A member of the RNA family "S. pyogenes antisense RNA 392987" from Streptococcus urinalis, 63 nucleotides long.
[Rfam]
RNA sequence: AUGGGAAUAAAUUUCUUACUAGUGAAGUGUCGUAACUCUAUUAUUCAAGAUUUAUUCCUUUUU
Numbered sequence: 001a002u003g004g005g006a007a008u009a010a011a012u013u014u015c016u017u018a019c020u021a022g023u024g025a026a027g028u029g030u031c032g033u034a035a036c037u038c039u040a041u042u043a044u045u046c047a048a049g050a051u052u053u054a055u056u057c058c059u060u061u062u063u
Stems, first nucleotide, its partner, number of pairs: 003059011016047001020043005026037003
Source information
The base pairs follow the family's consensus structure, which was predicted with RNAalifold. It scores 81 bits against the family's covariance model. Rfam 15.1 lists 89 matches to the family in 24 species. For this family Rfam cites "RNA sequencing uncovers antisense RNAs and novel small RNAs in Streptococcus pyogenes" (Le Rhun et al., RNA Biol, 2016). The organism belongs to Streptococcus urinalis, within Bacteria.